Shown here is a 79-nucleotide RNA sequence from Neodrepanis coruscans, a member of the family "mir-19 microRNA precursor family".
Its Rfam clan is "mir-19 clan".
The family's consensus secondary structure was predicted with RNAalifold.
Gene Ontology terms of the family: miRNA-mediated post-transcriptional gene silencing and RISC complex.
For this family Rfam cites "Identification of novel genes coding for small expressed RNAs" (Lagos-Quintana et al., Science, 2001).
RNA sequence: UUCUCCGGUGAGUUUUGCACGUUUCCAUCCAGCUGUAUGAUAAUCUGUUAUGGAAAUAUGUGCAAAACUGACUGUGGCA
Numbered sequence: 001u002u003c004u005c006c007g008g009u010g011a012g013u014u015u016u017g018c019a020c021g022u023u024u025c026c027a028u029c030c031a032g033c034u035g036u037a038u039g040a041u042a043a044u045c046u047g048u049u050a051u052g053g054a055a056a057u058a059u060g061u062g063c064a065a066a067a068c069u070g071a072c073u074g075u076g077g078c079a
Base pairs, nucleotide, nucleotide: 003077004076006074007073008072009071011069012068013067014066015065016064017063018062019061020060021059022056023055024054025053026052027051028050031049032048033047